A member of the RNA family "mir-393 microRNA precursor family" from Glycine max, 119 nucleotides long. Taxonomically the source falls in Glycine subgen. Soja (Eukaryota, Tracheophyta, Magnoliopsida, fabids). Rfam 15.1 lists 1,052 matches to the family in 221 species. The literature on the family includes a 2012 paper in J Plant Physiol by Kruszka et al., "Role of microRNAs and other sRNAs of plants in their changing environments". The base pairs follow the family's consensus structure.
RNA sequence: AGAGGAGGCAUCCAAAGGGAUCACAUUGAUCCCAAAUCCAAGCUUCAAUGUUCUUCUCUCUUUCUCACUCAAAAUAUUAAUUUUAUUUGGGAUCAUGCUAUCCCUUUGGACUUCUCCUU
Number, nucleotide and partner (000 for none) at each position: 001a000002g119003a118004g117005g116006a115007g000008g113009c000010a000011u110012c109013c108014a107015a106016a105017g104018g103019g102020a101021u100022c000023a000024c097025a096026u095027u000028g094029a093030u092031c091032c090033c000034a000035a000036a087037u000038c000039c000040a000041a000042g000043c000044u000045u000046c000047a000048a000049u000050g000051u000052u000053c000054u000055u000056c000057u000058c000059u000060c000061u000062u000063u000064c000065u000066c000067a000068c000069u000070c000071a000072a000073a000074a000075u000076a000077u000078u000079a000080a000081u000082u000083u000084u000085a000086u000087u036088u000089g000090g032091g031092a030093u029094c028095a026096u025097g024098c000099u000100a021101u020102c019103c018104c017105u016106u015107u014108g013109g012110a011111c000112u000113u008114c000115u006116c005117c004118u003119u002